RNA sequence: AAUAGGAGAAUGACAAAUCAAAUUUUUUCUCUUGAUUUUCAACCUUUUUUCUCCUGAAAAAUUUAAAUUUAACUAAAAAUGCUAAAAAUUAGGAGAAAAUAUCUGAUUUGUCAUUCUCAUAUU
Numbered sequence: 001a002a003u004a005g006g007a008g009a010a011u012g013a014c015a016a017a018u019c020a021a022a023u024u025u026u027u028u029c030u031c032u033u034g035a036u037u038u039u040c041a042a043c044c045u046u047u048u049u050u051c052u053c054c055u056g057a058a059a060a061a062u063u064u065a066a067a068u069u070u071a072a073c074u075a076a077a078a079a080u081g082c083u084a085a086a087a088a089u090u091a092g093g094a095g096a097a098a099a100u101a102u103c104u105g106a107u108u109u110g111u112c113a114u115u116c117u118c119a120u121a122u123u
Stems, first nucleotide, its partner, number of pairs: 001123004006118015022102002025099003029095011041083001045079004

This 123-nucleotide sequence from Gossypium raimondii belongs to the Rfam family "MIR7504 microRNA precursor family".
The match comes from Rfam's covariance-model search (100 bits).
Gene Ontology terms of the family: RISC complex and miRNA-mediated post-transcriptional gene silencing.
The organism belongs to Gossypium, within Eukaryota.